[Rfam]
RNA sequence: CGAACCGGAAGGCUUGGGAGAGCCUCAAGGUUCGAUCAAUCCGGUGUGACGGCCUGGGAGGGCCUUCUUCACACGGAUUCACAAGGGGAGAACCACCGAUGGAGAAUGCCCUCCUCAUCGGACUGUCGCGGCAAAUGAUGCUCG
Dot-bracket structure: ((((((...((((((....))))))...)))))).....((((.((....(((((....))))).......))))))..................(((((.(((.(.....).)))))))).......................

Shown here is a 144-nucleotide RNA sequence from Nitrobacter sp. Nb-311A, a member of the family "flg-Rhizobiales RNA". The base pairs follow the family's consensus structure, which is taken from published work. It is annotated as a cis-regulatory element.